[Rfam]
RNA sequence: AAUCAUUCCAAAAAUUAUCCUUGUAUAAUAUCAGUUGUAAUGGUCUGAUAGUUUCUACCUGGCAGCCGUAAAAUGCCGGACUACAAGGAAGUAUGCAAAAUAA
Number, nucleotide and partner (000 for none) at each position: 001a000002a000003u000004c000005a000006u000007u000008c000009c000010a000011a000012a000013a000014a000015u000016u000017a000018u089019c088020c087021u086022u085023g084024u083025a082026u000027a000028a000029u050030a049031u048032c047033a046034g045035u000036u000037g000038u000039a000040a000041u000042g000043g000044u000045c034046u033047g032048a031049u030050a029051g000052u000053u000054u000055c000056u000057a000058c000059c079060u078061g077062g076063c075064a074065g000066c000067c000068g000069u000070a000071a000072a000073a000074u064075g063076c062077c061078g060079g059080a000081c000082u025083a024084c023085a022086a021087g020088g019089a018090a000091g000092u000093a000094u000095g000096c000097a000098a000099a000100a000101u000102a000103a000
RNA: Purine riboswitch aptamer
Organism: Bacillus sp. MUM 13